[Rfam]
RNA sequence: GCUCCCCUGGCUCUAGCAGCACAGAAAUAUUGGCACUGGGAAGAAAGCCUGCCAAUAUUGGCUGUGCUGCUCCAGGCAGGGGGGU
Numbered sequence: 001g002c003u004c005c006c007c008u009g010g011c012u013c014u015a016g017c018a019g020c021a022c023a024g025a026a027a028u029a030u031u032g033g034c035a036c037u038g039g040g041a042a043g044a045a046a047g048c049c050u051g052c053c054a055a056u057a058u059u060g061g062c063u064g065u066g067c068u069g070c071u072c073c074a075g076g077c078a079g080g081g082g083g084g085u
Stems, first nucleotide, its partner, number of pairs: 001085006015071009026059010